The record is a 104-nucleotide RNA sequence from Paenibacillus spiritus, which matches "Purine riboswitch aptamer" in Rfam. Pairs were carried over by alignment from the consensus structure, which is taken from published work. The organism belongs to Paenibacillus, within Bacteria. A search with the family's covariance model found it, with a score of 64 bits.
[Rfam]
RNA sequence: CCGGACUGCCUACCAAAGACUCAUAUAAUAAUGGGAAUAUGGCCCAUAAGUUUCUACCGGAUGACCACUGCAAUCGUCCGACUAUGAGUGAAGCGAGCGUCCCG
Numbered sequence: 001c002c003g004g005a006c007u008g009c010c011u012a013c014c015a016a017a018g019a020c021u022c023a024u025a026u027a028a029u030a031a032u033g034g035g036a037a038u039a040u041g042g043c044c045c046a047u048a049a050g051u052u053u054c055u056a057c058c059g060g061a062u063g064a065c066c067a068c069u070g071c072a073a074u075c076g077u078c079c080g081a082c083u084a085u086g087a088g089u090g091a092a093g094c095g096a097g098c099g100u101c102c103c104g
Stems, first nucleotide, its partner, number of pairs: 019089007029049001031047005058080007